A member of the RNA family "Lysine riboswitch aptamer" from Planococcus salinus, 174 nucleotides long.
Riboswitches are metabolite binding domains within certain messenger RNAs that serve as precision sensors for their corresponding targets.
The match comes from Rfam's covariance-model search (111 bits).

RNA sequence: AGUGAUGAUAGAGGCGCGAACGUCAAUAGUAGCCAUUCGGAGAUUUGCAGAAUCUGUGAGGAAUGGGGAAAGGGGCGGUCGCCGAAGUGUGCAAAGGCUGCAGCCGAGCAUGCUGGUUCUGCAUUUAAGAAGUGCAGGGCUGUCAGAGUAAUUCUCUGGAGGGCUAUCUCACAU
Numbered sequence: 001a002g003u004g005a006u007g008a009u010a011g012a013g014g015c016g017c018g019a020a021c022g023u024c025a026a027u028a029g030u031a032g033c034c035a036u037u038c039g040g041a042g043a044u045u046u047g048c049a050g051a052a053u054c055u056g057u058g059a060g061g062a063a064u065g066g067g068g069a070a071a072g073g074g075g076c077g078g079u080c081g082c083c084g085a086a087g088u089g090u091g092c093a094a095a096g097g098c099u100g101c102a103g104c105c106g107a108g109c110a111u112g113c114u115g116g117u118u119c120u121g122c123a124u125u126u127a128a129g130a131a132g133u134g135c136a137g138g139g140c141u142g143u144c145a146g147a148g149u150a151a152u153u154c155u156c157u158g159g160a161g162g163g164c165u166a167u168c169u170c171a172c173a174u
Stems, first nucleotide, its partner, number of pairs: 007168005016082004021077004033066006086114007096104001115141011143159006